[Rfam]
The record is a 262-nucleotide RNA sequence, which matches "Bacterial large signal recognition particle RNA" in Rfam. The match comes from Rfam's covariance-model search (158 bits). Gene Ontology terms of the family: SRP-dependent cotranslational protein targeting to membrane, signal sequence recognition and signal recognition particle, plasma membrane targeting. The signal recognition particle (SRP) is a universally conserved ribonucleoprotein involved in the co-translational targeting of proteins to membranes. On this family, see Rosenblad et al., Nucleic Acids Res 2003: "SRPDB: Signal Recognition Particle Database".

RNA sequence: UCGUGCUACACGGGGAGCUGGCGGUGCCCUAUACCCUCAAUCCGCCAUAGCGGGGUGGAAUCCCUCCCCUCGGCAAGGCGCAAGGGCCGCUGUCACAGGGAAUGGCGCUGACGGCCGGGUCCCACGCGGCGCAGGCUUGUGAACCCCGCCAGGUCCGGAAGGAAGCAACGGUAAGCGAUGUCCAGCGAGUGCCGUGGGAGUGCCUGGCCCGAGCCACUACCUACGAUAUGCCCCCAGGCUGCUGUCAACGGGAGGUGCUCGA
Numbered sequence: 001u002c003g004u005g006c007u008a009c010a011c012g013g014g015g016a017g018c019u020g021g022c023g024g025u026g027c028c029c030u031a032u033a034c035c036c037u038c039a040a041u042c043c044g045c046c047a048u049a050g051c052g053g054g055g056u057g058g059a060a061u062c063c064c065u066c067c068c069c070u071c072g073g074c075a076a077g078g079c080g081c082a083a084g085g086g087c088c089g090c091u092g093u094c095a096c097a098g099g100g101a102a103u104g105g106c107g108c109u110g111a112c113g114g115c116c117g118g119g120u121c122c123c124a125c126g127c128g129g130c131g132c133a134g135g136c137u138u139g140u141g142a143a144c145c146c147c148g149c150c151a152g153g154u155c156c157g158g159a160a161g162g163a164a165g166c167a168a169c170g171g172u173a174a175g176c177g178a179u180g181u182c183c184a185g186c187g188a189g190u191g192c193c194g195u196g197g198g199a200g201u202g203c204c205u206g207g208c209c210c211g212a213g214c215c216a217c218u219a220c221c222u223a224c225g226a227u228a229u230g231c232c233c234c235c236a237g238g239c240u241g242c243u244g245u246c247a248a249c250g251g252g253a254g255g256u257g258c259u260c261g262a
Stems, first nucleotide, its partner, number of pairs: 001262003005258002009057003012030004017025003034054003038050001063255006072246004078239002084233004091228002094225001097222003102218001104215003113209008121198006127189001130187003134183001137178004146171003154163003